[Rfam]
RNA sequence: GAGCGAUGAUUAAGGCUGCACCCUUGUGAUGGUAGGGUCCGUCACUCUCUUCUGACUUAAGGAGGUAAAUAGGUGCCUCUGAGCUC
Numbered sequence: 001g002a003g004c005g006a007u008g009a010u011u012a013a014g015g016c017u018g019c020a021c022c023c024u025u026g027u028g029a030u031g032g033u034a035g036g037g038u039c040c041g042u043c044a045c046u047c048u049c050u051u052c053u054g055a056c057u058u059a060a061g062g063a064g065g066u067a068a069a070u071a072g073g074u075g076c077c078u079c080u081g082a083g084c085u086c
Base pairs, nucleotide, nucleotide: 001086002085003084004083

Shown here is an 86-nucleotide sequence from Ricinus communis, a member of the family "small nucleolar RNA snoR114". For this family Rfam cites "Mining small RNA sequencing data: a new approach to identify small nucleolar RNAs in Arabidopsis" (Chen and Wu, Nucleic Acids Res, 2009). The family's RNA type in Rfam is C/D-box small nucleolar RNA. Gene Ontology terms of the family: RNA processing and nucleolus.